[Rfam]
This 158-nucleotide RNA from Blautia hydrogenotrophica belongs to the Rfam family "Clostridiales-1 RNA".
Rfam classes the family as a small RNA.
The family has 194 seed sequences and 1,172 matches in Rfam 15.1.
It scores 91 bits against the family's covariance model.
RNA sequence: AUAAGCUCCCGGACAACAGCUGGGCGGCUGGCAAGCUUGCUUGCCGAGACGCACAGACAUUGGACGGGGCAACGGGUAUGAGCACGCAGGCGUAUGCGCCGGAGUGCGAACCUGUCAGGAUUGCGGGAGUGUAAUGCACGAAGCAAUCCGCAGCUUAU
Numbered sequence: 001a002u003a004a005g006c007u008c009c010c011g012g013a014c015a016a017c018a019g020c021u022g023g024g025c026g027g028c029u030g031g032c033a034a035g036c037u038u039g040c041u042u043g044c045c046g047a048g049a050c051g052c053a054c055a056g057a058c059a060u061u062g063g064a065c066g067g068g069g070c071a072a073c074g075g076g077u078a079u080g081a082g083c084a085c086g087c088a089g090g091c092g093u094a095u096g097c098g099c100c101g102g103a104g105u106g107c108g109a110a111c112c113u114g115u116c117a118g119g120a121u122u123g124c125g126g127g128a129g130u131g132u133a134a135u136g137c138a139c140g141a142a143g144c145a146a147u148c149c150g151c152a153g154c155u156u157a158u
Stems, first nucleotide, its partner, number of pairs: 001158007008068004015061002020056003024052003028048002031044005072115005079110001082107004089100004118149007129139004